The record is a 72-nucleotide RNA sequence from Ictidomys tridecemlineatus, which matches "Small nucleolar RNA SNORD63" in Rfam. The literature on the family includes a 2002 paper in Mol Cell Biol by Galardi et al., "Purified box C/D snoRNPs are able to reproduce site-specific 2'-O-methylation of target RNA in vitro". snoRNA U63 is found in both humans and mice. The family has 23 seed sequences and 795 matches in Rfam 15.1. Rfam links the family to the GO terms nucleolus and RNA processing.
RNA sequence: GUGCAAUGAUGUUUUUGUCAACACAUCAUUCUGAAGGAAAAAGUAUGUGAUGACAUCCUAUGACUGAGCACA
Dot-bracket structure: ((((...............................................................)))).
Numbered sequence: 001g002u003g004c005a006a007u008g009a010u011g012u013u014u015u016u017g018u019c020a021a022c023a024c025a026u027c028a029u030u031c032u033g034a035a036g037g038a039a040a041a042a043g044u045a046u047g048u049g050a051u052g053a054c055a056u057c058c059u060a061u062g063a064c065u066g067a068g069c070a071c072a
Stems, first nucleotide, its partner, number of pairs: 001071004
The organism belongs to Ictidomys, within Eukaryota. By type it is a C/D-box small nucleolar RNA.